[Rfam]
The family of this 178-nucleotide sequence from Cyprinus carpio is "Small nucleolar RNA SNORA81".
The literature on the family includes a 2005 paper in Nucleic Acids Res by Gu et al., "A novel experimental approach for systematic identification of box H/ACA snoRNAs from eukaryotes".
RNA sequence: UCUUCCACUCAAAAGAACGGUGCUAAAAUUGCAGAUUCCAGGUUUUCCUGGUUUAUGUGAUGAUGCUAGCAGAGUAUCAUGUGGAAGAAGAACAGUAGACCUGUACCGGGAAUGAAACUGAGUCGGACCUCUUUCUUAAUGUCCGGUGGCUUAUGUUUCAAGGUCCAGAGCAACAAUA
Number, nucleotide and partner (000 for none) at each position: 001u000002c000003u000004u000005c000006c000007a000008c000009u000010c000011a000012a000013a000014a000015g000016a000017a000018c074019g000020g000021u071022g070023c069024u068025a067026a000027a000028a064029u063030u062031g061032c000033a000034g000035a054036u000037u000038c051039c050040a049041g048042g047043u000044u000045u000046u000047c042048c041049u040050g039051g038052u000053u000054u035055a000056u000057g000058u000059g000060a000061u031062g030063a029064u028065g000066c000067u025068a024069g023070c022071a021072g000073a000074g018075u000076a000077u000078c000079a000080u000081g000082u000083g000084g000085a000086a000087g000088a000089a000090g000091a000092a000093c000094a000095g000096u000097a000098g000099a000100c000101c000102u172103g171104u170105a000106c168107c000108g166109g165110g164111a000112a000113u000114g000115a000116a000117a000118c000119u000120g000121a000122g147123u000124c145125g144126g143127a142128c000129c000130u000131c000132u000133u000134u000135c000136u000137u000138a000139a000140u000141g000142u127143c126144c125145g124146g000147u122148g000149g000150c000151u000152u000153a000154u000155g000156u000157u000158u000159c000160a000161a000162g000163g000164u110165c109166c108167a000168g106169a000170g104171c103172a102173a000174c000175a000176a000177u000178a000